Description:
A member of the RNA family "L4-Archaeoglobi ribosomal protein leades", 102 nucleotides long. Rfam classes the family as a cis-regulatory leader. On this family, see Eckert and Weinberg, BMC Microbiol 2020: "Discovery of 20 novel ribosomal leader candidates in bacteria and archaea".
RNA sequence: CUGAAGGGCGCGUCCGGGUCAAUUGCGGACUGCAACACCCCGAUCUCCCUCAACAUACCGCCGAACAUGGCGGUCGAGGGAGGGGGAGCGCGUGACCGUCAG
Numbered sequence: 001c002u003g004a005a006g007g008g009c010g011c012g013u014c015c016g017g018g019u020c021a022a023u024u025g026c027g028g029a030c031u032g033c034a035a036c037a038c039c040c041c042g043a044u045c046u047c048c049c050u051c052a053a054c055a056u057a058c059c060g061c062c063g064a065a066c067a068u069g070g071c072g073g074u075c076g077a078g079g080g081a082g083g084g085g086g087a088g089c090g091c092g093u094g095a096c097c098g099u100c101a102g
Stems, first nucleotide, its partner, number of pairs: 001102004008093006016040003023035005044086005049080003